[Rfam]
RNA sequence: CGGGAACAACCGACGUCAGGGAAUUCGGCAAAUUAGCCCCGUAAGUUCGCGAGAAGGGGUGCCUGCCUUGGAUAGAGGCAGGUCACAGUAACCAGGAAGCUCCGACUGUCUAGUAACAACAUAGGUGACCGCAAAUCCGCAAGGACUCGUACGGUCACUGAAUCCUGCCCAGUGCGGGUAUCUGAACACCCAGUACAAUGGGACGAAGGACCCGUUAACGGCGGGGGUAACUAUGACCCUCUUAAGGUAGCGUAGUACCUUGCCGCUUCAGUAGCGGCUUGCACGAAUGGAUCAACGAGAGCUUCGCUGUCCCGACGUUGGGCCCGGUGAACUGUACGUUCCAGUGCGGAGUCUGGAGU
Numbered sequence: 001c002g003g004g005a006a007c008a009a010c011c012g013a014c015g016u017c018a019g020g021g022a023a024u025u026c027g028g029c030a031a032a033u034u035a036g037c038c039c040c041g042u043a044a045g046u047u048c049g050c051g052a053g054a055a056g057g058g059g060u061g062c063c064u065g066c067c068u069u070g071g072a073u074a075g076a077g078g079c080a081g082g083u084c085a086c087a088g089u090a091a092c093c094a095g096g097a098a099g100c101u102c103c104g105a106c107u108g109u110c111u112a113g114u115a116a117c118a119a120c121a122u123a124g125g126u127g128a129c130c131g132c133a134a135a136u137c138c139g140c141a142a143g144g145a146c147u148c149g150u151a152c153g154g155u156c157a158c159u160g161a162a163u164c165c166u167g168c169c170c171a172g173u174g175c176g177g178g179u180a181u182c183u184g185a186a187c188a189c190c191c192a193g194u195a196c197a198a199u200g201g202g203a204c205g206a207a208g209g210a211c212c213c214g215u216u217a218a219c220g221g222c223g224g225g226g227g228u229a230a231c232u233a234u235g236a237c238c239c240u241c242u243u244a245a246g247g248u249a250g251c252g253u254a255g256u257a258c259c260u261u262g263c264c265g266c267u268u269c270a271g272u273a274g275c276g277g278c279u280u281g282c283a284c285g286a287a288u289g290g291a292u293c294a295a296c297g298a299g300a301g302c303u304u305c306g307c308u309g310u311c312c313c314g315a316c317g318u319u320g321g322g323c324c325c326g327g328u329g330a331a332c333u334g335u336a337c338g339u340u341c342c343a344g345u346g347c348g349g350a351g352u353c354u355g356g357a358g359u
Stems, first nucleotide, its partner, number of pairs: 001326004010321008019312003036060005045050001061083009084088001096305007103297002107121003124159008132149001136145003162292004167222003172219002174215005181210003189202004223241006242246001262278006340357005
Shown here is a 359-nucleotide part of an RNA from Halorubellus sp. JP-L1, a member of the family "Archaeal large subunit ribosomal RNA". A reference for the family is Yusupov et al. (2001), "Crystal structure of the ribosome at 5.5 A resolution", Science.